[Rfam]
RNA: THF (Tetrahydrofolate) riboswitch aptamer
Organism: Lacticaseibacillus sharpeae
RNA sequence: UAAGGAGUAGGCCUCAACGCGUUAAGUGCCGGUGGAACGGAAUGUGAACACCGGACGAAAUCUUUUGAUGCGAUGUUGGGACCGCAUUCGCCUGA
Numbered sequence: 001u002a003a004g005g006a007g008u009a010g011g012c013c014u015c016a017a018c019g020c021g022u023u024a025a026g027u028g029c030c031g032g033u034g035g036a037a038c039g040g041a042a043u044g045u046g047a048a049c050a051c052c053g054g055a056c057g058a059a060a061u062c063u064u065u066u067g068a069u070g071c072g073a074u075g076u077u078g079g080g081a082c083c084g085c086a087u088u089c090g091c092c093u094g095a
Base pairs, nucleotide, nucleotide: 001095003093004092005091010083011082013080014079015078016077017076018075019074020072021071022070026056027055029054030053031052032051033050034049040089041088042087043086044085060069061068062067